[Rfam]
RNA: Bacillus sRNA ncr1575
Organism: Halobacillus yeomjeoni
RNA sequence: CAAUUGAAACAGAAAGGGAUGAUGGGUGGACAAUGAAGAGCUAAUCUUAUUUUUUUACUAUUUGAAAUCAUAUAUUUCAGAUUGAAAAAACAUAGGAUUAGUCUGCCCAUUUUCUAUAUGCUCCUUAGUCAUGCCGUUGAUGAGGUAUGGACUAUAGUAUAAAUGCGAUUCGACUAAUCCUUCCAAAACCAUUUGGGAGGAUUAUUUA
Dot-bracket structure: ...............((((...((((..(((..........(((((((((((((.....(((((((((.....)))))))))....)))).))))))))))))..))))..)))).............((((((..........)))))).........................(((((((((((......))))))))))).....